RNA sequence: UCUUGCUUUGACUCACUCAACCUGGGUGUGAUGUUAUUUCGAUAUGGUAUCCAUCACAACCUCCUUGAGUGAGCGAUAGCAGGA
Numbered sequence: 001u002c003u004u005g006c007u008u009u010g011a012c013u014c015a016c017u018c019a020a021c022c023u024g025g026g027u028g029u030g031a032u033g034u035u036a037u038u039u040c041g042a043u044a045u046g047g048u049a050u051c052c053a054u055c056a057c058a059a060c061c062u063c064c065u066u067g068a069g070u071g072a073g074c075g076a077u078a079g080c081a082g083g084a
Stems, first nucleotide, its partner, number of pairs: 008076003012073009024061002027058007

The family of this 84-nucleotide RNA from Drosophila ananassae is "mir-67 microRNA precursor family". Rfam links the family to the GO terms RISC complex and miRNA-mediated post-transcriptional gene silencing. The family's consensus secondary structure was predicted with RNAalifold.